[Rfam]
Nucleotides: 032
Base pairs, nucleotide, nucleotide: 001032002031003030004029005028006027008026009021010020012018
Number, partner (000 for none) and nucleotide at each position: 001032g002031a003030u004029u005028a006027u007000c008026g009021a010020a011000g012018g013000a014000u015000u016000a017000g018012c019000g020010u021009u022000a023000a024000u025000u026008c027006a028005u029004a030003a031002u032001c